[Rfam]
Nucleotides: 357
Base pairs, nucleotide, nucleotide: 018036019035020034021033022032023031037354038353039352040351045334046333047332048331051314052313056080057079058078059077060076061075065073066072087310088309089308091124092123096119097118098117099116100115101114103111104110128145129144130143131142132141148306149305150304151303152302153301154300155299163296164295165294169284170283171282173280174279175278176277180273181272182271183270184269186203187202188201189200190199208256209255210254211253217246218245219244220243221242226236227235228234262267320329321328335349336348337347338346
Number, partner (000 for none) and nucleotide at each position: 001000u002000c003000a004000c005000a006000g007000u008000a009000g010000c011000a012000g013000c014000g015000a016000u017000a018036g019035u020034c021033g022032g023031g024000u025000g026000a027000g028000a029000a030000c031023c032022u033021c034020g035019a036018c037354g038353g039352c040351c041000u042000g043000a044000u045334g046333a047332g048331c049000a050000a051314g052313g053000g054000u055000u056080c057079c058078u059077c060076g061075g062000c063000a064000c065073u066072g067000u068000c069000a070000a071000u072066c073065a074000g075061c076060c077059g078058a079057g080056g081000g082000u083000u084000a085000g086000c087310c088309g089308a090000u091124c092123c093000u094000a095000a096119g097118u098117c099116c100115c101114c102000c103111c104110g105000u106000a107000a108000g109000u110104c111103g112000a113000c114101g115100g116099g117098g118097a119096c120000a121000a122000c123092g124091g125000g126000a127000a128145a129144c130143u131142g132141g133000u134000u135000a136000a137000u138000a139000u140000u141132c142131c143130a144129g145128u146000g147000c148306c149305a150304u151303c152302a153301c154300g155299c156000a157000g158000u159000a160000a161000a162000a163296g164295u165294c166000g167000a168000c169284a170283c171282c172000g173280c174279g175278g176277a177000a178000a179000a180273c181272a182271u183270c184269g185000a186203g187202c188201c189200g190199g191000g192000c193000c194000u195000u196000c197000g198000c199190c200189c201188g202187g203186u204000c205000a206000a207000a208256u209255c210254g211253g212000a213000g214000a215000a216000g217246c218245u219244c220243g221242u222000g223000g224000a225000u226236g227235c228234c229000g230000u231000c232000a233000c234228g235227g236226c237000a238000c239000g240000a241000a242221g243220c244219g245218a246217g247000c248000g249000a250000a251000g252000c253211c254210c255209g256208a257000g258000a259000u260000a261000g262267g263000g264000a265000a266000a267262c268000u269184c270183g271182a272181u273180g274000g275000u276000a277176u278175c279174c280173g281000g282171g283170g284169u285000c286000c287000g288000u289000g290000a291000a292000a293000a294165g295164a296163c297000g298000a299155g300154c301153g302152u303151g304150a305149u306148g307000u308089u309088c310087g311000u312000a313052c314051c315000g316000a317000g318000a319000u320329c321328c322000g323000a324000c325000a326000c327000a328321g329320g330000u331048g332047c333046u334045c335349u336348g337347g338346c339000a340000g341000c342000g343000a344000a345000a346338g347337c348336c349335a350000c351040g352039g353038c354037c355000u356000g357000u
Shown here is a 357-nucleotide part of an RNA from Halopenitus malekzadehii, a member of the family "Archaeal large subunit ribosomal RNA". A search with the family's covariance model found it, with a score of 2762 bits. Taxonomically the source falls in Halopenitus (Archaea, Methanobacteriati, Halobacteria, Halobacteriales). Gene Ontology terms of the family: ribosome and structural constituent of ribosome. The base pairs follow the family's consensus structure, which is taken from published work.